[Rfam]
RNA sequence: CGUCGGUCUAGUUUUAGCGGACGAAAAGCCGGAUUCCUUCACCGGCCUGACUGGCGCCCCAAUUGAUGAGGG
Numbered sequence: 001c002g003u004c005g006g007u008c009u010a011g012u013u014u015u016a017g018c019g020g021a022c023g024a025a026a027a028g029c030c031g032g033a034u035u036c037c038u039u040c041a042c043c044g045g046c047c048u049g050a051c052u053g054g055c056g057c058c059c060c061a062a063u064u065g066a067u068g069a070g071g072g
Stems, first nucleotide, its partner, number of pairs: 001056008011022004028046005036072006

Rfam assigns this 72-nucleotide RNA to the family "int-alpA RNA".
Pairs were carried over by alignment from the consensus structure, which is taken from published work.
The family has 167 seed sequences and 577 matches in Rfam 15.1.
Rfam's curators put it in the seed alignment.
Acidobacteria (1 example), Planctomycetes (1 example), Proteobacteria.